Small nucleolar RNA R16: an 88-nucleotide RNA from Hordeum vulgare. The family's consensus secondary structure was predicted with PFOLD.
RNA sequence: GCUGGCAAAUGAUGAUCCGAUAUCCUACACACUCAAUGGAAAAUUCCAUGUGUGGACUAAUAAUCUCAUCUCAUUAUCUGAUGCCUUG
Number, nucleotide and partner (000 for none) at each position: 001g000002c000003u000004g085005g084006c083007a082008a000009a000010u000011g000012a000013u000014g000015a000016u000017c000018c000019g000020a000021u000022a000023u000024c000025c000026u000027a000028c000029a000030c000031a000032c000033u000034c000035a000036a000037u000038g000039g000040a000041a000042a000043a000044u000045u000046c000047c000048a000049u000050g000051u000052g000053u000054g000055g000056a000057c000058u000059a000060a000061u000062a000063a000064u000065c000066u000067c000068a000069u000070c000071u000072c000073a000074u000075u000076a000077u000078c000079u000080g000081a000082u007083g006084c005085c004086u000087u000088g000
Rfam 15.1 lists 884 matches to the family in 222 species. It scores 60 bits against the family's covariance model. On this family, see Galardi et al., Mol Cell Biol 2002: "Purified box C/D snoRNPs are able to reproduce site-specific 2'-O-methylation of target RNA in vitro". Taxonomically the source falls in Hordeum vulgare (Eukaryota, Euphyllophyta, Poaceae, Hordeinae). Its family is annotated with RNA processing and nucleolus in the Gene Ontology.